[Rfam]
The family of this 124-nucleotide sequence from Roseivivax halodurans is "SAM-I/IV (S-adenosyl methionine) riboswitch aptamer". The family's consensus secondary structure is taken from published work. The organism belongs to Roseivivax halodurans, within Bacteria.

RNA sequence: UUUGGGCAUCAAGAGAGGACGUGUCCUCGCCAACCUGCCGACCCGGCGAAGGUGGCUCCCUCCCCGGAGGAGAUGCGGGCAAGAAGGCCGCACCCCCAUUCGGCCGCCAACAAUCGGGUUCAUU
Numbered sequence: 001u002u003u004g005g006g007c008a009u010c011a012a013g014a015g016a017g018g019a020c021g022u023g024u025c026c027u028c029g030c031c032a033a034c035c036u037g038c039c040g041a042c043c044c045g046g047c048g049a050a051g052g053u054g055g056c057u058c059c060c061u062c063c064c065c066g067g068a069g070g071a072g073a074u075g076c077g078g079g080c081a082a083g084a085a086g087g088c089c090g091c092a093c094c095c096c097c098a099u100u101c102g103g104c105c106g107c108c109a110a111c112a113a114u115c116g117g118g119u120u121c122a123u124u
Stems, first nucleotide, its partner, number of pairs: 006076005015028005029056003034052003037047003041120001043118002078108003
Dot-bracket structure: .....(((((....(((((....)))))(((..((((((.[.[[)))..))).)))...............))))).(((.........................)))........]].]....

Rfam 15.1 lists 567 matches to the family in 508 species. For this family Rfam cites "Structural basis for diversity in the SAM clan of riboswitches" (Trausch et al., PNAS, 2014). It scores 47 bits against the family's covariance model.